Makes More Granules Regulator RNA (mmgR): a 78-nucleotide RNA sequence from Methylobacterium sp. Leaf93. From the family's description: SuhB later renamed mmgR (makes more granules regulator) was a putative non-coding RNA found multiple times in the Agrobacterium tumefaciens genome and related alpha-proteobacteria. Lineage of the source: Bacteria > Alphaproteobacteria > Hyphomicrobiales > Methylobacteriaceae > Methylobacterium.
[Rfam]
RNA sequence: UUUUACUGCCCAUGGCGGGCGUUUCCUCCCUUGCACUCGGCCCCGCUCCCCAAUGAGCGGGGCCUUUUUGUCGAGGGA
Numbered sequence: 001u002u003u004u005a006c007u008g009c010c011c012a013u014g015g016c017g018g019g020c021g022u023u024u025c026c027u028c029c030c031u032u033g034c035a036c037u038c039g040g041c042c043c044c045g046c047u048c049c050c051c052a053a054u055g056a057g058c059g060g061g062g063c064c065u066u067u068u069u070g071u072c073g074a075g076g077g078a
Stems, first nucleotide, its partner, number of pairs: 008020004040063009
Dot-bracket structure: .......((((.....))))...................(((((((((......)))))))))...............